[Rfam]
RNA sequence: ACCAUCCUUUUCUUGGGGCUGCGCUACUGUCAAAUGAGUGCAUAGUGAGGGCUGUACUGCUAACGCCUAAACAACACCCACAUCAACUAGAGCUUUGCUUUACCUUGGUGCAAGUUUUAGAAAA
Numbered sequence: 001a002c003c004a005u006c007c008u009u010u011u012c013u014u015g016g017g018g019c020u021g022c023g024c025u026a027c028u029g030u031c032a033a034a035u036g037a038g039u040g041c042a043u044a045g046u047g048a049g050g051g052c053u054g055u056a057c058u059g060c061u062a063a064c065g066c067c068u069a070a071a072c073a074a075c076a077c078c079c080a081c082a083u084c085a086a087c088u089a090g091a092g093c094u095u096u097g098c099u100u101u102a103c104c105u106u107g108g109u110g111c112a113a114g115u116u117u118u119a120g121a122a123a124a
Stems, first nucleotide, its partner, number of pairs: 006018004021060003026055002029052003038046002081110005088102006
This 124-nucleotide RNA from Callithrix jacchus belongs to the Rfam family "U4atac minor spliceosomal RNA". U4atac is an essential component of the minor U12-type spliceosome complex which is required for removal of the rarer class of eukaryotic introns (AT-AC, U12-type). The match comes from Rfam's covariance-model search (89 bits). It is annotated as a spliceosomal small nuclear RNA. Gene Ontology terms of the family: pre-mRNA 5'-splice site binding, U4atac snRNP and spliceosomal tri-snRNP complex assembly. Taxonomically the source falls in Callithrix (Eukaryota, Opisthokonta, Bilateria, Sarcopterygii).